[Rfam]
RNA sequence: GAACGCGAAGCGUUCGCACUUCGUCCUAAUAGUAUAUAUAUUAUUAGGGCAAAGUGCGAGCGCUGGCGCCC
Dot-bracket structure: (..(((..(((((((((((((.(((((((((..........))))))))).))))))))))))).)))..)
RNA: mir-H11 microRNA precursor family